[Rfam]
The record is an 85-nucleotide sequence from Panagrolaimus sp. PS1159, which matches "mir-46/mir-47/mir-281 microRNA precursor family" in Rfam.
RNA sequence: UCAAUGUAAAUGUUAAGAGAGCAACUCCAUGACAGUAAUUAUAUCUUCAAACUGUCAACAGAUGGCUCUCUUAACAGUACAAUGA
Numbered sequence: 001u002c003a004a005u006g007u008a009a010a011u012g013u014u015a016a017g018a019g020a021g022c023a024a025c026u027c028c029a030u031g032a033c034a035g036u037a038a039u040u041a042u043a044u045c046u047u048c049a050a051a052c053u054g055u056c057a058a059c060a061g062a063u064g065g066c067u068c069u070c071u072u073a074a075c076a077g078u079a080c081a082a083u084g085a
Stems, first nucleotide, its partner, number of pairs: 014073005020067003025061002031056003035052002
Taxonomically the source falls in Panagrolaimus (Eukaryota, Bilateria, Nematoda, Panagrolaimoidea). Its family is annotated with miRNA-mediated post-transcriptional gene silencing and RISC complex in the Gene Ontology.